A member of the RNA family "U2 spliceosomal RNA" from Trichomalopsis sarcophagae, 183 nucleotides long. NCBI's taxonomy places the organism under Eukaryota, Eumetazoa, Pterygota, Eumetabola, Trichomalopsis. Rfam describes the family as follows. U2 is a small nuclear RNA (snRNA) component of the spliceosome (involved in pre-mRNA splicing). Complementary binding between U2 snRNA (in an area lying towards the 5' end but 3' to hairpin I) and the branchpoint sequence (BPS) of the intron results the bulging out of an unpaired adenosine, on the BPS, which initiates a nucleophilic attack at the intronic 5' splice site, thus starting the first of two transesterification reactions that mediate splicing.
[Rfam]
RNA sequence: AUUUAUGCUUUUGGAUCUUCGAUAGCUACAUAUGUUUUUACCAGUUUGAUAUCUAAUUUGCUCCUUAUUGAGGAGUCAGCAUAUCGAACUGAUUUUUGGAAAAUGGUGAAGUGUCUGGGGCUUGCUCCGACUUUACCGCGGGUCACCUUGCAUUGCAGUAUCGCAAGGACCGACCCGCAUAAU
Numbered sequence: 001a002u003u004u005a006u007g008c009u010u011u012u013g014g015a016u017c018u019u020c021g022a023u024a025g026c027u028a029c030a031u032a033u034g035u036u037u038u039u040a041c042c043a044g045u046u047u048g049a050u051a052u053c054u055a056a057u058u059u060g061c062u063c064c065u066u067a068u069u070g071a072g073g074a075g076u077c078a079g080c081a082u083a084u085c086g087a088a089c090u091g092a093u094u095u096u097u098g099g100a101a102a103a104u105g106g107u108g109a110a111g112u113g114u115c116u117g118g119g120g121c122u123u124g125c126u127c128c129g130a131c132u133u134u135a136c137c138g139c140g141g142g143u144c145a146c147c148u149u150g151c152a153u154u155g156c157a158g159u160a161u162c163g164c165a166a167g168g169a170c171c172g173a174c175c176c177g178c179a180u181a182a183u
Stems, first nucleotide, its partner, number of pairs: 001006001040057001043054002060076007105137008117128004140176005146168006